[Rfam]
RNA sequence: UCGCACAAUCUCUCCCGGAGUCCCGGGCUUCUCUGAUGAAUUUCAUGACAAAGAUAGCCCCAGAGCUCGUGCUACAACCCAUGCCGUCUGUGUUGCAGAUUAGCCCUCUGUUCCUUUACUUUCCCAUGGCUCUUUCUAUGUUGAAUUCUAUGGCUACAUUU
Numbered sequence: 001u002c003g004c005a006c007a008a009u010c011u012c013u014c015c016c017g018g019a020g021u022c023c024c025g026g027g028c029u030u031c032u033c034u035g036a037u038g039a040a041u042u043u044c045a046u047g048a049c050a051a052a053g054a055u056a057g058c059c060c061c062a063g064a065g066c067u068c069g070u071g072c073u074a075c076a077a078c079c080c081a082u083g084c085c086g087u088c089u090g091u092g093u094u095g096c097a098g099a100u101u102a103g104c105c106c107u108c109u110g111u112u113c114c115u116u117u118a119c120u121u122u123c124c125c126a127u128g129g130c131u132c133u134u135u136c137u138a139u140g141u142u143g144a145a146u147u148c149u150a151u152g153g154c155u156a157c158a159u160u161u
Base pairs, nucleotide, nucleotide: 003072004071005070006069008067011065025060026059027058028057029056030054031053032051083154084153085152086151087150091143092142094140095139097137098136099135103130104129105128
RNA: small nucleolar RNA snoR134